About this RNA: The record is a 122-nucleotide sequence from Hibiscus syriacus, which matches "MIR396 microRNA precursor family" in Rfam. The organism belongs to Hibiscus, within Eukaryota. Rfam 15.1 lists 744 matches to the family in 207 species.
[Rfam]
RNA sequence: GAUCAUGUUUUUUCCACAGCUUUCUUGAACUUUCUUAAUUUGCGUACUUAAUUACAACAUUAGCUAAUAACCAUUUAUAUGUAUGUAUGAAAGCUCAAGAAAGCUGUGGGAGAACAUGAUGG
Numbered sequence: 001g002a003u004c005a006u007g008u009u010u011u012u013u014c015c016a017c018a019g020c021u022u023u024c025u026u027g028a029a030c031u032u033u034c035u036u037a038a039u040u041u042g043c044g045u046a047c048u049u050a051a052u053u054a055c056a057a058c059a060u061u062a063g064c065u066a067a068u069a070a071c072c073a074u075u076u077a078u079a080u081g082u083a084u085g086u087a088u089g090a091a092a093g094c095u096c097a098a099g100a101a102a103g104c105u106g107u108g109g110g111a112g113a114a115c116a117u118g119a120u121g122g
Stems, first nucleotide, its partner, number of pairs: 003119005014109003018105006025098004030093005